[Rfam]
RNA sequence: AAGCGACCGCAUCUCAAGAGCCGGAAGACGGGGUAAAAACCGGCCGCGUCAGACCCGCGCAAGACGGAGUCAGCAACGCCCCCGCAGAGUCGCGCCGGGCCUGCCUAUGCGU
Numbered sequence: 001a002a003g004c005g006a007c008c009g010c011a012u013c014u015c016a017a018g019a020g021c022c023g024g025a026a027g028a029c030g031g032g033g034u035a036a037a038a039a040c041c042g043g044c045c046g047c048g049u050c051a052g053a054c055c056c057g058c059g060c061a062a063g064a065c066g067g068a069g070u071c072a073g074c075a076a077c078g079c080c081c082c083c084g085c086a087g088a089g090u091c092g093c094g095c096c097g098g099g100c101c102u103g104c105c106u107a108u109g110c111g112u
Base pairs, nucleotide, nucleotide: 003093004092005091006090007089021043022042023041024040046079047078048077049076055067056066057065097106098105099104
Dot-bracket structure: ..(((((.............((((...............))))..((((.....(((.......)))........)))).........)))))...(((....)))......

The record is a 112-nucleotide sequence from Mycobacterium asiaticum, which matches "Mycobacterium sRNA ncrMT1302" in Rfam. NCBI's taxonomy places the organism under Bacteria, Actinomycetota, Actinomycetes, Mycobacteriaceae, Mycobacterium. On this family, see Pelly et al., Gene 2012: "A screen for non-coding RNA in Mycobacterium tuberculosis reveals a cAMP-responsive RNA that is expressed during infection". A search with the family's covariance model found it, with a score of 93 bits. The base pairs follow the family's consensus structure, which was predicted with WAR.